[Rfam]
RNA sequence: AAGUCUUUUAAACUAGUCCAGAGAGGCUGGGAAAGAUAUCAUCAUAACAAAAAAUCGUUAUGAAAUAUUGAAUCCUUACACCUCUAUAGGUGUAAGGAUUUUUAUG
Dot-bracket structure: ..(((((((...((((((......)))))))))))))....(((((((.(....).)))))))......((((((((((((((....)))))))))))))).....
RNA: PyrR binding site
Organism: Paraclostridium benzoelyticum